Shown here is a 95-nucleotide RNA from Musa balbisiana, a member of the family "Small nucleolar RNA snR60/Z15/Z230/Z193/J17".
RNA sequence: AAUGGUCGCGCGAUGAUCGGUUGCAUAGUUCAAAUGAUCACCCCUUUGAGGGUAUGAUUAUUAUGAACGUCUUUCGCUCCUAUCUGAUGACCUAU
Numbered sequence: 001a002a003u004g005g006u007c008g009c010g011c012g013a014u015g016a017u018c019g020g021u022u023g024c025a026u027a028g029u030u031c032a033a034a035u036g037a038u039c040a041c042c043c044c045u046u047u048g049a050g051g052g053u054a055u056g057a058u059u060a061u062u063a064u065g066a067a068c069g070u071c072u073u074u075c076g077c078u079c080c081u082a083u084c085u086g087a088u089g090a091c092c093u094a095u
Stems, first nucleotide, its partner, number of pairs: 004092005
Taxonomically the source falls in Musa (Eukaryota, Streptophyta, Embryophyta, Euphyllophyta). It is annotated as a C/D-box small nucleolar RNA. Clan: SNORD77 clan.